[Rfam]
RNA sequence: AGUGAAGUCACUGGAGGCAGCGGUUCAUCGACCUCUUCUUGGGGAUUUUUUGUGACACUGCACAAAACAUGAAUCGGUCGAUAAACCUCUGCAUCCAGCGCUCAUCCU
Number, nucleotide and partner (000 for none) at each position: 001a000002g000003u000004g000005a000006a000007g000008u000009c000010a000011c000012u000013g096014g095015a094016g000017g000018c091019a090020g089021c000022g087023g086024u085025u084026c000027a082028u081029c080030g079031a078032c077033c076034u000035c000036u073037u072038c071039u000040u000041g000042g000043g000044g000045a000046u000047u000048u000049u000050u000051u000052g000053u000054g000055a000056c000057a000058c000059u000060g000061c000062a000063c000064a000065a000066a000067a000068c000069a000070u000071g038072a037073a036074u000075c000076g033077g032078u031079c030080g029081a028082u027083a000084a025085a024086c023087c022088u000089c020090u019091g018092c000093a000094u015095c014096c013097a000098g000099c000100g000101c000102u000103c000104a000105u000106c000107c000108u000

Shown here is a 108-nucleotide sequence from Carya illinoinensis, a member of the family "MIR162_1 microRNA precursor family". The source organism's lineage runs through Eukaryota, Embryophyta, Pentapetalae, fabids and Carya. The base pairs follow the family's consensus structure, which was predicted with RNAalifold. The match comes from Rfam's covariance-model search (108 bits). Clan: MIR167 microRNA precursor clan.